[Rfam]
RNA sequence: GCUCUGCCGCUGCCCGGAAUCCACAACAUACUUAGGCAGAGGCGGGGGACCCAGAGUGUCCGGGCACGGCAUUAAGCCGACCCUAGGGGUGGAGCCGCUUUACGCGGCCGGAUGGCCUCAUCCGAACCCGACAGCUAACUCCGCAGGCGUUGAGAGGCAAUCA
Numbered sequence: 001g002c003u004c005u006g007c008c009g010c011u012g013c014c015c016g017g018a019a020u021c022c023a024c025a026a027c028a029u030a031c032u033u034a035g036g037c038a039g040a041g042g043c044g045g046g047g048g049a050c051c052c053a054g055a056g057u058g059u060c061c062g063g064g065c066a067c068g069g070c071a072u073u074a075a076g077c078c079g080a081c082c083c084u085a086g087g088g089g090u091g092g093a094g095c096c097g098c099u100u101u102a103c104g105c106g107g108c109c110g111g112a113u114g115g116c117c118u119c120a121u122c123c124g125a126a127c128c129c130g131a132c133a134g135c136u137a138a139c140u141c142c143g144c145a146g147g148c149g150u151u152g153a154g155a156g157g158c159a160a161u162c163a
Base pairs, nucleotide, nucleotide: 002041003040004039005038006037007036008035042144043143044142045141046140047139052086087129088128089127095107096106097105098104110123111122112121113120
This 163-nucleotide sequence from Pseudarthrobacter sp. NBSH8 belongs to the Rfam family "c-di-AMP riboswitch aptamer (ydaO/yuaA leader)". Rfam's curators write: This family represents a conserved RNA structure found upstream of the ydaO and yuaA genes in Bacillus subtilis and related genes in other bacteria. A search with the family's covariance model found it, with a score of 58 bits. The source organism's lineage runs through Bacteria, Actinomycetota, Actinomycetes, Micrococcales and Pseudarthrobacter.